Small nucleolar RNA SNORD35: an 85-nucleotide RNA sequence from Channa argus. On this family, see Nicoloso et al., J Mol Biol 1996: "Intron-encoded, antisense small nucleolar RNAs: the characterization of nine novel species points to their direct role as guides for the 2'-O-ribose methylation of rRNAs". U35 is a C/D box snoRNA located in intron 6 of ribosomal protein L13A and intron 3 of ribosomal protein S11 in humans and at homologous positions in mouse and chicken ribosomal protein genes. U35 guides the methylation of 2'-O-ribose sites in 28S rRNA. Its family is annotated with RNA processing and nucleolus in the Gene Ontology. Lineage of the source: Eukaryota > Eumetazoa > Bilateria > Eurypterygia > Channa.
RNA sequence: UGCAUAUGAUGUUUUUUCUCACGAUGGUCUUCCAAGCCCCCUGGGCUCUGACGACAGUGCCAAAUGGCAGUACUGAUGUAUUAUA
Numbered sequence: 001u002g003c004a005u006a007u008g009a010u011g012u013u014u015u016u017u018c019u020c021a022c023g024a025u026g027g028u029c030u031u032c033c034a035a036g037c038c039c040c041c042u043g044g045g046c047u048c049u050g051a052c053g054a055c056a057g058u059g060c061c062a063a064a065u066g067g068c069a070g071u072a073c074u075g076a077u078g079u080a081u082u083a084u085a
Stems, first nucleotide, its partner, number of pairs: 001080004

Annotation: Its Rfam clan is "SNORD35 clan".